[Rfam]
RNA sequence: UCCUUGUGAUGAUUUUUUUCUUGACUUUCGUUCUUCUGAGCAAUCUGAAGCAACCUACUUAAUCUGAGGGGA
Numbered sequence: 001u002c003c004u005u006g007u008g009a010u011g012a013u014u015u016u017u018u019u020c021u022u023g024a025c026u027u028u029c030g031u032u033c034u035u036c037u038g039a040g041c042a043a044u045c046u047g048a049a050g051c052a053a054c055c056u057a058c059u060u061a062a063u064c065u066g067a068g069g070g071g072a
Stems, first nucleotide, its partner, number of pairs: 001072003004068001